[Rfam]
RNA sequence: AAUGAUGUAUUUAACUGAAUAAAAAGAUGUUAUUUUUCCAACUGCAUGCAAGAGCAACCUGGAGAGACUUUGACAGCUCAGGUCAGCAUAAUACCUGCAGCUGCCACUCGCCUUUCCUAUAUCU
Number, nucleotide and partner (000 for none) at each position: 001a031002a000003u000004g000005a028006u027007g000008u000009a000010u000011u000012u000013a000014a000015c000016u000017g000018a000019a000020u000021a000022a000023a000024a000025a000026g000027a006028u005029g000030u000031u001032a000033u000034u000035u000036u000037u000038c000039c000040a000041a000042c000043u000044g000045c000046a000047u000048g000049c000050a000051a000052g000053a000054g000055c000056a000057a000058c000059c000060u000061g117062g116063a115064g114065a113066g112067a000068c000069u000070u000071u000072g000073a000074c000075a000076g104077c103078u000079c097080a096081g095082g094083u000084c000085a000086g000087c000088a000089u000090a000091a000092u000093a000094c082095c081096u080097g079098c000099a000100g000101c000102u000103g077104c076105c000106a000107c000108u000109c000110g000111c000112c066113u065114u064115u063116c062117c061118u000119a000120u000121a000122u000123c000124u000
Small nucleolar RNA SNORA44: a 124-nucleotide sequence from Myotis brandtii.
Its family is annotated with nucleolus and RNA processing in the Gene Ontology.
The family's consensus secondary structure was predicted with PFOLD.
From the family's description: ACA44 is a member of the H/ACA class of snoRNA that guide the sites of modification of uridines to pseudouridines.
The family's RNA type in Rfam is H/ACA-box small nucleolar RNA.
A reference for the family is Huttenhofer et al. (2001), "RNomics: an experimental approach that identifies 201 candidates for novel, small, non-messenger RNAs in mouse", EMBO J.
Taxonomically the source falls in Myotis (Eukaryota, Vertebrata, Amniota, Theria).
It scores 102 bits against the family's covariance model.